RNA sequence: GUUUUAGUGCCCAACUUUGACCGUCCGUCUUAUUUGAAAAUUUUUUUAUUACUAUUUUUAUUGUUAUUAGAUGAUAAAAUAUAAAUAUUACUUCAUGCGUGACUUAAUUUUUAAAAAAAUUUCAUAAAAUUUUUAAAUAAGACGGACGGUUAAACGUUGGACACGGAAAC
Numbered sequence: 001g002u003u004u005u006a007g008u009g010c011c012c013a014a015c016u017u018u019g020a021c022c023g024u025c026c027g028u029c030u031u032a033u034u035u036g037a038a039a040a041u042u043u044u045u046u047u048a049u050u051a052c053u054a055u056u057u058u059u060a061u062u063g064u065u066a067u068u069a070g071a072u073g074a075u076a077a078a079a080u081a082u083a084a085a086u087a088u089u090a091c092u093u094c095a096u097g098c099g100u101g102a103c104u105u106a107a108u109u110u111u112u113a114a115a116a117a118a119a120u121u122u123c124a125u126a127a128a129a130u131u132u133u134u135a136a137a138u139a140a141g142a143c144g145g146a147c148g149g150u151u152a153a154a155c156g157u158u159g160g161a162c163a164c165g166g167a168a169a170c
Stems, first nucleotide, its partner, number of pairs: 011160005016154018
RNA: MIR812 microRNA precursor family